RNA sequence: AGCAUUUUAAGAGAGCUUUCUUCAGUCCACUCAUGGGUGGCGGUAGGAUUUAAUUAGCUGCCGACUCAUUCAUCCAAAUACUGAGUUAAAAAGUUCAGAAAACAAAAGGGGCGGGUGCUGUAGAAAAGAAGGUUUACCCAGUAAAUGAGUGAAUGAUGCGGGAGACAAAUUGAAUCUUAAGCUUCCUGUACUUGGACUGAAGGGAGCUCCCUUUACUGUUAUU
Numbered sequence: 001a002g003c004a005u006u007u008u009a010a011g012a013g014a015g016c017u018u019u020c021u022u023c024a025g026u027c028c029a030c031u032c033a034u035g036g037g038u039g040g041c042g043g044u045a046g047g048a049u050u051u052a053a054u055u056a057g058c059u060g061c062c063g064a065c066u067c068a069u070u071c072a073u074c075c076a077a078a079u080a081c082u083g084a085g086u087u088a089a090a091a092a093g094u095u096c097a098g099a100a101a102a103c104a105a106a107a108g109g110g111g112c113g114g115g116u117g118c119u120g121u122a123g124a125a126a127a128g129a130a131g132g133u134u135u136a137c138c139c140a141g142u143a144a145a146u147g148a149g150u151g152a153a154u155g156a157u158g159c160g161g162g163a164g165a166c167a168a169a170u171u172g173a174a175u176c177u178u179a180a181g182c183u184u185c186c187u188g189u190a191c192u193u194g195g196a197c198u199g200a201a202g203g204g205a206g207c208u209c210c211c212u213u214u215a216c217u218g219u220u221a222u223u
Stems, first nucleotide, its partner, number of pairs: 013209008023199007036186001058164002061161003067155004075147001
RNA: MIR159 microRNA precursor family